The record is a 111-nucleotide RNA sequence from Juglans regia, which matches "mir-395 microRNA precursor family" in Rfam. Rfam links the family to the GO terms RISC complex and miRNA-mediated post-transcriptional gene silencing. From the family's description: mir-395 was identified in both Arabidopsis thaliana and Oryza sativa computationally and was later experimentally verified. mir-395 is thought to target mRNAs coding for ATP sulphurylases. For this family Rfam cites "Computational Identification of Plant MicroRNAs and Their Targets, Including a Stress-Induced miRNA" (Jones-Rhoades and Bartel, Mol Cell, 2004).

RNA sequence: GUGUCCCCUAGAGUUCCUCUGAAUACUUCACUAUGGAGUAUAGACUCUCUUCAAACUUAUAAGGCAUGUUGUCUUUCCUACUGAAGUGUUUGGAGGAACUCCUGGAGUCAU
Numbered sequence: 001g002u003g004u005c006c007c008c009u010a011g012a013g014u015u016c017c018u019c020u021g022a023a024u025a026c027u028u029c030a031c032u033a034u035g036g037a038g039u040a041u042a043g044a045c046u047c048u049c050u051u052c053a054a055a056c057u058u059a060u061a062a063g064g065c066a067u068g069u070u071g072u073c074u075u076u077c078c079u080a081c082u083g084a085a086g087u088g089u090u091u092g093g094a095g096g097a098a099c100u101c102c103u104g105g106a107g108u109c110a111u
Stems, first nucleotide, its partner, number of pairs: 005107001007105002011101010022091002024088007032080002035077004